[Rfam]
RNA sequence: CAAUAUAAAUAGAGAGAGCUAUGCGUCAACAUAGCCCUCAAUGUAGAACCGUUUAAAGACGGUGGCUAGAAUUAAAUAGUUAUCAAAAA
Numbered sequence: 001c002a003a004u005a006u007a008a009a010u011a012g013a014g015a016g017a018g019c020u021a022u023g024c025g026u027c028a029a030c031a032u033a034g035c036c037c038u039c040a041a042u043g044u045a046g047a048a049c050c051g052u053u054u055a056a057a058g059a060c061g062g063u064g065g066c067u068a069g070a071a072u073u074a075a076a077u078a079g080u081u082a083u084c085a086a087a088a089a
Base pairs, nucleotide, nucleotide: 020033021032022031023030048063049062050061051060052059053058
Overview
Shown here is an 89-nucleotide RNA sequence from Brochothrix thermosphacta, a member of the family "RNA anti-toxin A". Gene Ontology terms of the family: negative regulation of translation and mRNA binding. The source organism's lineage runs through Bacteria, Bacillati, Bacilli, Listeriaceae and Brochothrix. Rfam 15.1 lists 190 matches to the family in 120 species. The family's RNA type in Rfam is antitoxin RNA.